[Rfam]
RNA: Nuclear RNase P
RNA sequence: CCAAUGUUAAUCUCGUACUUGGGGCGCACAUACUGAACGUUCGUCGUUAUCAUCGCCCCGGGAAGGUCUGAGGAAAGGUCUCCUGUGUUCAAAACAUUCUAGACGGAUGCUUCUCCUAUCGGGAAGAUGGGGGAACAAGAAAAUACAAAGUCAAGUUUAAGCGAGGACGUCUGAGCUCUCGGGCUCAGAUCGAGCAGAGAAUUUGGAUUUUGUUGGAAGCCCCCAUGACCAGCACUUUUAGUCCAAUCUACGAGAUGACGCCAAGUCACAACUCAAUUCAGACUAGUCUCUCAUUGG
Numbered sequence: 001c002c003a004a005u006g007u008u009a010a011u012c013u014c015g016u017a018c019u020u021g022g023g024g025c026g027c028a029c030a031u032a033c034u035g036a037a038c039g040u041u042c043g044u045c046g047u048u049a050u051c052a053u054c055g056c057c058c059c060g061g062g063a064a065g066g067u068c069u070g071a072g073g074a075a076a077g078g079u080c081u082c083c084u085g086u087g088u089u090c091a092a093a094a095c096a097u098u099c100u101a102g103a104c105g106g107a108u109g110c111u112u113c114u115c116c117u118a119u120c121g122g123g124a125a126g127a128u129g130g131g132g133g134a135a136c137a138a139g140a141a142a143a144u145a146c147a148a149a150g151u152c153a154a155g156u157u158u159a160a161g162c163g164a165g166g167a168c169g170u171c172u173g174a175g176c177u178c179u180c181g182g183g184c185u186c187a188g189a190u191c192g193a194g195c196a197g198a199g200a201a202u203u204u205g206g207a208u209u210u211u212g213u214u215g216g217a218a219g220c221c222c223c224c225a226u227g228a229c230c231a232g233c234a235c236u237u238u239u240a241g242u243c244c245a246a247u248c249u250a251c252g253a254g255a256u257g258a259c260g261c262c263a264a265g266u267c268a269c270a271a272c273u274c275a276a277u278u279c280a281g282a283c284u285a286g287u288c289u290c291u292c293a294u295u296g297g
Stems, first nucleotide, its partner, number of pairs: 001297004009289001012254006021059005036048004068281005077230004095109005110126006127226007146212003256268004